MIR4371 microRNA precursor family: a 158-nucleotide RNA sequence from Glycine soja.

[Rfam]
RNA sequence: UCGUUAAAUGAUGAUGUGACAGACAAAGUAUCAUGUCAUCAUAUCUUAUCAAAGACACUUCAUUGUCACGUCAUCACCAUCAAUGACGUGAUAACAAUGUGUCAUUGGUUGGACAUGAUGACAUGACAAUCCGUCUAUCACAUCAUCACUUCACAGAA
Numbered sequence: 001u002c003g004u005u006a007a008a009u010g011a012u013g014a015u016g017u018g019a020c021a022g023a024c025a026a027a028g029u030a031u032c033a034u035g036u037c038a039u040c041a042u043a044u045c046u047u048a049u050c051a052a053a054g055a056c057a058c059u060u061c062a063u064u065g066u067c068a069c070g071u072c073a074u075c076a077c078c079a080u081c082a083a084u085g086a087c088g089u090g091a092u093a094a095c096a097a098u099g100u101g102u103c104a105u106u107g108g109u110u111g112g113a114c115a116u117g118a119u120g121a122c123a124u125g126a127c128a129a130u131c132c133g134u135c136u137a138u139c140a141c142a143u144c145a146u147c148a149c150u151u152c153a154c155a156g157a158a
Stems, first nucleotide, its partner, number of pairs: 001156001003154002006151002009148011021136004027130001029128001031126012044113003048109005054103005070087005
Source information:
Rfam links the family to the GO terms RISC complex and miRNA-mediated post-transcriptional gene silencing.